[Rfam]
RNA sequence: UUGCCCUCUUAAGUCUGGCAGUGUCUUAAGUGGCCAACACAGAGGGGUAUAAAAGCUCUCUCUCAAGCCAAAGGCAAGGUUGAAACUUUUCUUUGGAUCAUGCUGAGAGGAACAUAU
Numbered sequence: 001u002u003g004c005c006c007u008c009u010u011a012a013g014u015c016u017g018g019c020a021g022u023g024u025c026u027u028a029a030g031u032g033g034c035c036a037a038c039a040c041a042g043a044g045g046g047g048u049a050u051a052a053a054a055g056c057u058c059u060c061u062c063u064c065a066a067g068c069c070a071a072a073g074g075c076a077a078g079g080u081u082g083a084a085a086c087u088u089u090u091c092u093u094u095g096g097a098u099c100a101u102g103c104u105g106a107g108a109g110g111a112a113c114a115u116a117u
Stems, first nucleotide, its partner, number of pairs: 002049006009042002016036002019030001058109005068096007076088003080085001
Dot-bracket structure: .((((((.((.....((.(..........)....))....)).))))))........(((((.....(((((((.(((.(....)))).)))))))........)))))........
RNA: Small nucleolar RNA SNORA26
Organism: Heliornis fulica